This 74-nucleotide RNA sequence from Neodiprion lecontei belongs to the Rfam family "mir-980 microRNA precursor family". Taxonomically the source falls in Neodiprion (Eukaryota, Opisthokonta, Hexapoda, Endopterygota). Gene Ontology terms of the family: RISC complex and miRNA-mediated post-transcriptional gene silencing.
RNA sequence: ACUACAGUGCGGCUCAUCAUCGGGCACUUUGCUAUUUUAAAUGCAAGCUGCCUAGUGAAGGGCAACAUUGUGGU
Numbered sequence: 001a002c003u004a005c006a007g008u009g010c011g012g013c014u015c016a017u018c019a020u021c022g023g024g025c026a027c028u029u030u031g032c033u034a035u036u037u038u039a040a041a042u043g044c045a046a047g048c049u050g051c052c053u054a055g056u057g058a059a060g061g062g063c064a065a066c067a068u069u070g071u072g073g074u
Stems, first nucleotide, its partner, number of pairs: 004071006012063004017058004023052002028047005